[Rfam]
RNA: tRNA
RNA sequence: GCGGGUAUGGCGGAAUUGGCAGACGCGUUAGAUUCAGGUUCUAAUGGCUUUUUAGCUAUGCAGGUUCAAGUCCUGUUACCCGCA
Number, nucleotide and partner (000 for none) at each position: 001g083002c082003g081004g080005g079006u078007a077008u000009g000010g026011c025012g024013g000014a000015a000016u000017u000018g000019g000020c000021a000022g000023a000024c012025g011026c010027g000028u044029u043030a042031g041032a040033u000034u000035c000036a000037g000038g000039u000040u032041c031042u030043a029044a028045u000046g000047g000048c000049u000050u000051u000052u000053u000054a000055g000056c000057u000058a000059u000060g076061c075062a074063g073064g072065u000066u000067c000068a000069a000070g000071u000072c064073c063074u062075g061076u060077u007078a006079c005080c004081c003082g002083c001084a000